[Rfam]
RNA sequence: UAGUGUAAAAGGCAAACCACCUGAAAGGGUGGGACGCAAAGCCGUGGGUCUACAGCCGUUACCGGUAUGACUGCCAGGCUGCCGCU
Numbered sequence: 001u002a003g004u005g006u007a008a009a010a011g012g013c014a015a016a017c018c019a020c021c022u023g024a025a026a027g028g029g030u031g032g033g034a035c036g037c038a039a040a041g042c043c044g045u046g047g048g049u050c051u052a053c054a055g056c057c058g059u060u061a062c063c064g065g066u067a068u069g070a071c072u073g074c075c076a077g078g079c080u081g082c083c084g085c086u
Stems, first nucleotide, its partner, number of pairs: 012037002017032006040080004045076003048071003055066004
The family of this 86-nucleotide sequence from Neomoorella thermoacetica is "c-di-GMP-I riboswitch aptamer". NCBI's taxonomy places the organism under Bacteria, Bacillati, Bacillota, Neomoorellales, Neomoorella. The family's consensus secondary structure is taken from published work. A search with the family's covariance model found it, with a score of 80 bits.